[Rfam]
Nucleotides: 200
Base pairs, nucleotide, nucleotide: 003061004060005059006058016047017046018045019044020042023039024038025037071119072118073117074116075115076114078112079111080110081109082108083107084106085105125193126192127191128190131189132188133187134186144181145180148177151174156172158170
Number, partner (000 for none) and nucleotide at each position: 001000c002000u003061c004060u005059c006058c007000u008000g009000u010000u011000u012000c013000u014000g015000c016047c017046c018045c019044g020042a021000u022000u023039c024038c025037u026000u027000u028000a029000u030000g031000c032000u033000c034000c035000a036000u037025a038024g039023g040000u041000u042020u043000a044019c045018g046017g047016g048000u049000u050000c051000u052000g053000g054000u055000g056000a057000u058006g059005g060004a061003g062000a063000a064000g065000a066000u067000c068000a069000a070000g071119c072118u073117g074116u075115g076114g077000a078112g079111c080110u081109g082108u083107c084106c085105c086000u087000a088000u089000g090000a091000u092000u093000u094000g095000a096000u097000a098000c099000u100000u101000c102000a103000c104000u105085g106084g107083g108082a109081u110080g111079g112078c113000g114076c115075u116074g117073c118072g119071g120000a121000u122000c123000g124000u125193g126192a127191g128190a129000a130000u131189g132188u133187g134186u135000g136000g137000c138000a139000a140000u141000c142000a143000u144181a145180g146000u147000g148177c149000u150000u151174g152000u153000c154000a155000a156172c157000u158170g159000a160000u161000u162000u163000a164000g165000c166000u167000u168000u169000g170158u171000u172156g173000a174151c175000a176000u177148g178000g179000c180145c181144u182000u183000g184000u185000u186134g187133c188132a189131c190128u191127c192126u193125c194000u195000a196000u197000a198000u199000c200000u